[Rfam]
RNA sequence: GCGCGCCACGGAGAUGGCAUUCCUCCGGUCCCUGCUGCAAUGGGACGAACCGCCGCCCACGGCUGAUGAUGCCUGUCCACCC
Numbered sequence: 001g002c003g004c005g006c007c008a009c010g011g012a013g014a015u016g017g018c019a020u021u022c023c024u025c026c027g028g029u030c031c032c033u034g035c036u037g038c039a040a041u042g043g044g045a046c047g048a049a050c051c052g053c054c055g056c057c058c059a060c061g062g063c064u065g066a067u068g069a070u071g072c073c074u075g076u077c078c079a080c081c082c
Base pairs, nucleotide, nucleotide: 010026011025012024013023016073017072018071019070020069021068052063053062054061055060
RNA: Fluoride riboswitch aptamer (crcB RNA motif)
Organism: Pseudoluteimonas lycopersici